[Rfam]
RNA: TPP riboswitch aptamer (THI element)
Organism: Deinococcus koreensis
RNA sequence: ACGCGUCACCGGGGGUGCCCUGACCGAGCAGUCGGCAGGGCUGAGACAUACCCCAGGAACCUGAUCCGGGUCAUUCCGGCGGAGGGAGCGUGACCGGAAGCCAGC
Numbered sequence: 001a002c003g004c005g006u007c008a009c010c011g012g013g014g015g016u017g018c019c020c021u022g023a024c025c026g027a028g029c030a031g032u033c034g035g036c037a038g039g040g041c042u043g044a045g046a047c048a049u050a051c052c053c054c055a056g057g058a059a060c061c062u063g064a065u066c067c068g069g070g071u072c073a074u075u076c077c078g079g080c081g082g083a084g085g086g087a088g089c090g091u092g093a094c095c096g097g098a099a100g101c102c103a104g105c
Stems, first nucleotide, its partner, number of pairs: 006093004011054004016048001017041005060085003066079004